[Rfam]
RNA sequence: UCCUCGCUCCAAGAAUCGCAACGAAGCACACGCACAGAGUGCCCUCGGGCAUCUCGCUCCGCUUUGGGAGAAAGUCCCCGGACAAAGGUCCUUUGGAUCGCACUUUCAGCAACGAACCGCCAUAGAAGCGCGGCCUCGUACCACGACGGCGCUUCUCACUCUCUUUUCCGUUUGCACUCUUUUCCUGACCUUCCCGACGCUACGGGUGGAGGAGCCGGCGCCUGGACGAUGAUACGAGUCCGCUGGCCACCUUGCCCGCCGCCGACGGAUUGACGUGGGUUUAGAGGAGGGGGGAGAUGCUGGGUCGCGCUGGGUAUCGAGGGUCUUCUCGUCCAGUUUAUGGUCAUGCGAUUGCUUCUGCGCGUCUCGGUCACACGGGACGGCGGCAGGAGUAACUCAAUGGGGCUUAUUCUUGACGCGAGG
Dot-bracket structure: .((((((((.(..((((((..((((((.........((.((((....)))))).......)))))).....[[[.[[[[.....................................................................................................................................................................(((.....(((((...((((((.........................(.....).....)))).)).)))))......)))......................)))))).((((((..........................)))))).........]]]]]]]....).)).))))))